[Rfam]
RNA: MDR-NUDIX RNA
RNA sequence: ACUAUGAACCGAGCGGUUCCUCUAUUCGUCUGAAUGUCGGGACGUCCCGACCGCUCACGA
Numbered sequence: 001a002c003u004a005u006g007a008a009c010c011g012a013g014c015g016g017u018u019c020c021u022c023u024a025u026u027c028g029u030c031u032g033a034a035u036g037u038c039g040g041g042a043c044g045u046c047c048c049g050a051c052c053g054c055u056c057a058c059g060a
Stems, first nucleotide, its partner, number of pairs: 006019005026060004036051006